[Rfam]
RNA: Ascomycota telomerase RNA, nucleotides 204 to 414
RNA sequence: UCCCCUACAGUUCUCCGACUUCGCAUUUUCUCUGACAGGAAUUGCCCACUCCGGGCUUAUCCGAAUGGCUGGGCUUCCUGUUAUACGCCACCCUAGAGCCUGAAUCAGGACCUCUUGCCGUGGUUUUCAGUAUGGUAGGGAGCCGGUUGUCCUGGUGACGACACAGCCCAGCGAGAAAUUGUGUUUUCGGAACUUAACCCUAAGUUCAACU
Numbered sequence: 001u002c003c004c005c006u007a008c009a010g011u012u013c014u015c016c017g018a019c020u021u022c023g024c025a026u027u028u029u030c031u032c033u034g035a036c037a038g039g040a041a042u043u044g045c046c047c048a049c050u051c052c053g054g055g056c057u058u059a060u061c062c063g064a065a066u067g068g069c070u071g072g073g074c075u076u077c078c079u080g081u082u083a084u085a086c087g088c089c090a091c092c093c094u095a096g097a098g099c100c101u102g103a104a105u106c107a108g109g110a111c112c113u114c115u116u117g118c119c120g121u122g123g124u125u126u127u128c129a130g131u132a133u134g135g136u137a138g139g140g141a142g143c144c145g146g147u148u149g150u151c152c153u154g155g156u157g158a159c160g161a162c163a164c165a166g167c168c169c170a171g172c173g174a175g176a177a178a179u180u181g182u183g184u185u186u187u188c189g190g191a192a193c194u195u196a197a198c199c200c201u202a203a204g205u206u207c208a209a210c211u
Stems, first nucleotide, its partner, number of pairs: 009194003015190004